[Rfam]
RNA: Small nucleolar RNA SNORD2
RNA sequence: CUGUGAAAUGAUGUCAAUCAUCUUUUGAGACUGACUUGAAAUAAAGAGACUACUCAUUGCUGAUCACGG
Numbered sequence: 001c002u003g004u005g006a007a008a009u010g011a012u013g014u015c016a017a018u019c020a021u022c023u024u025u026u027g028a029g030a031c032u033g034a035c036u037u038g039a040a041a042u043a044a045a046g047a048g049a050c051u052a053c054u055c056a057u058u059g060c061u062g063a064u065c066a067c068g069g
Stems, first nucleotide, its partner, number of pairs: 001069006